A member of the RNA family "TPP riboswitch aptamer (THI element)" from Lancefieldella parvula, 112 nucleotides long. The base pairs follow the family's consensus structure, which is taken from published work. The organism belongs to Lancefieldella parvula, within Bacteria. It scores 62 bits against the family's covariance model.
[Rfam]
RNA sequence: AUAAUUUUAAUGGGGAGCUGGGAAAUGGCCCGGCUGAGAGGCAGCACCUAAUACUGCGACCCAAGAACCUGAUCUGGGUAAUGCCAGCGUAGGGAGCAAAUGCCGUCCUUAC
Numbered sequence: 001a002u003a004a005u006u007u008u009a010a011u012g013g014g015g016a017g018c019u020g021g022g023a024a025a026u027g028g029c030c031c032g033g034c035u036g037a038g039a040g041g042c043a044g045c046a047c048c049u050a051a052u053a054c055u056g057c058g059a060c061c062c063a064a065g066a067a068c069c070u071g072a073u074c075u076g077g078g079u080a081a082u083g084c085c086a087g088c089g090u091a092g093g094g095a096g097c098a099a100a101u102g103c104c105g106u107c108c109u110u111a112c
Stems, first nucleotide, its partner, number of pairs: 006100003011063004017034005041057004068093004074087004